[Rfam]
RNA: MIR5225 microRNA precursor family
RNA sequence: GGGACUUUAGUCGCAGGAGAGAUGACACCUUCUAUUACUAAUGACAUGAUUUUAUAGCAAUUUUAACAGAAGUUGUCAUCUUUCUUUGACUGAAGUUCA
Numbered sequence: 001g002g003g004a005c006u007u008u009a010g011u012c013g014c015a016g017g018a019g020a021g022a023u024g025a026c027a028c029c030u031u032c033u034a035u036u037a038c039u040a041a042u043g044a045c046a047u048g049a050u051u052u053u054a055u056a057g058c059a060a061u062u063u064u065a066a067c068a069g070a071a072g073u074u075g076u077c078a079u080c081u082u083u084c085u086u087u088g089a090c091u092g093a094a095g096u097u098c099a
Stems, first nucleotide, its partner, number of pairs: 001098003005095004010090004015086003019082007